Rfam assigns this 73-nucleotide RNA sequence from Ectothiorhodospira mobilis to the family "SAH (S-adenosyl-L-homocysteine) riboswitch aptamer".

RNA sequence: CUGUCUGAGGAGCGCUGCAACGGGUCUUCGAAUCCGCCAGGCUCAGACACCUCCAAAACGGCGCUCGCUGUAC
Number, nucleotide and partner (000 for none) at each position: 001c000002u049003g048004u047005c046006u045007g044008a043009g000010g000011a000012g000013c000014g000015c000016u000017g000018c000019a000020a000021c036022g035023g034024g033025u032026c000027u000028u000029c000030g000031a000032a025033u024034c023035c022036g021037c000038c000039a000040g000041g000042c000043u008044c007045a006046g005047a004048c003049a002050c000051c000052u000053c000054c000055a000056a000057a000058a000059c000060g000061g000062c000063g000064c000065u000066c000067g000068c000069u000070g000071u000072a000073c000
For this family Rfam cites "Riboswitches that sense S-adenosylhomocysteine and activate genes involved in coenzyme recycling" (Wang et al., Mol Cell, 2008).